The record is a 387-nucleotide sequence from Rubellimicrobium mesophilum, which matches "Bacterial RNase P class A" in Rfam. By type it is a ribozyme.
RNA sequence: GCGGAUGGCUGGAUGACCGCGGGGGCCAAAGGGGCGACCCUGGGCCCACGAGGAAAGUCCGGACUCCGGAAAGCACGGUGCCGGGUAACGCCCGGCCGGGGAAACCCGAGGGAAAGCGCCACAGAGAACAGACUACCCCGACCUGGUCGGGGAAAAGGUGAAACGGUGGGGCAAGAGCCCACCGCGGGACGGGCAACCGGACCGGCACGGCAAGCCCCACCGGGAGCAAUGCCAAAUAGGGGUUCCGCGCCGCAAGGCAGGGAUGCUUCAGCCCGAGGAACCCGGGUUGGCAGCUAGAGGUCCGUCGGCAACGGCGGAUCGAGAGGAAUGGUCAUCCAGGGGGCUUCGGCCCCCGGACAGAAUCCGGCUUACAGGCCGUCCGCGCGC
Numbered sequence: 001g002c003g004g005a006u007g008g009c010u011g012g013a014u015g016a017c018c019g020c021g022g023g024g025g026c027c028a029a030a031g032g033g034g035c036g037a038c039c040c041u042g043g044g045c046c047c048a049c050g051a052g053g054a055a056a057g058u059c060c061g062g063a064c065u066c067c068g069g070a071a072a073g074c075a076c077g078g079u080g081c082c083g084g085g086u087a088a089c090g091c092c093c094g095g096c097c098g099g100g101g102a103a104a105c106c107c108g109a110g111g112g113a114a115a116g117c118g119c120c121a122c123a124g125a126g127a128a129c130a131g132a133c134u135a136c137c138c139c140g141a142c143c144u145g146g147u148c149g150g151g152g153a154a155a156a157g158g159u160g161a162a163a164c165g166g167u168g169g170g171g172c173a174a175g176a177g178c179c180c181a182c183c184g185c186g187g188g189a190c191g192g193g194c195a196a197c198c199g200g201a202c203c204g205g206c207a208c209g210g211c212a213a214g215c216c217c218c219a220c221c222g223g224g225a226g227c228a229a230u231g232c233c234a235a236a237u238a239g240g241g242g243u244u245c246c247g248c249g250c251c252g253c254a255a256g257g258c259a260g261g262g263a264u265g266c267u268u269c270a271g272c273c274c275g276a277g278g279a280a281c282c283c284g285g286g287u288u289g290g291c292a293g294c295u296a297g298a299g300g301u302c303c304g305u306c307g308g309c310a311a312c313g314g315c316g317g318a319u320c321g322a323g324a325g326g327a328a329u330g331g332u333c334a335u336c337c338a339g340g341g342g343g344c345u346u347c348g349g350c351c352c353c354c355g356g357a358c359a360g361a362a363u364c365c366g367g368c369u370u371a372c373a374g375g376c377c378g379u380c381c382g383c384g385c386g387c
Stems, first nucleotide, its partner, number of pairs: 001383010011372001012336007020050002023047005055370003059367005064226004072268002076222005081095005096110001097108004111217002116215002118211003133157002136152007165183006184206001185204003190199003230292004240283006260274003264270001300319008